[Rfam]
RNA sequence: AGGUCAAUGAUGACACCUAAAUUUGUCUUGAAGACAGAUGAUGACAUAAAAAUCAUGCUCAAUAGGAUUAUGCUGAGGCCU
Dot-bracket structure: ((((((.((.............................................................)).))..))))